Shown here is a 113-nucleotide RNA from Kandleria vitulina, a member of the family "FMN riboswitch aptamer (RFN element)". Pairs were carried over by alignment from the consensus structure, which is taken from published work. The source organism's lineage runs through Bacteria, Bacillati, Erysipelotrichia, Kandleria and Kandleria vitulina.

RNA sequence: AUAAAUCUUUGGGGCAGGUGAAAUUCCUGAUCGGCGGUGAUAGUCCGCGAGCGCAAGCAUGAAUCGGUGUAAUUCCGAUACCGACGGUAUAGUCCGGAUGGAAAAAGAUGGUG
Numbered sequence: 001a002u003a004a005a006u007c008u009u010u011g012g013g014g015c016a017g018g019u020g021a022a023a024u025u026c027c028u029g030a031u032c033g034g035c036g037g038u039g040a041u042a043g044u045c046c047g048c049g050a051g052c053g054c055a056a057g058c059a060u061g062a063a064u065c066g067g068u069g070u071a072a073u074u075c076c077g078a079u080a081c082c083g084a085c086g087g088u089a090u091a092g093u094c095c096g097g098a099u100g101g102a103a104a105a106a107g108a109u110g111g112u113g
Base pairs, nucleotide, nucleotide: 005109006108007107008106009105010104016028017027018026030093031092032083033082034048035047036046037045043081044080063079064078065077066076067075085096086095087094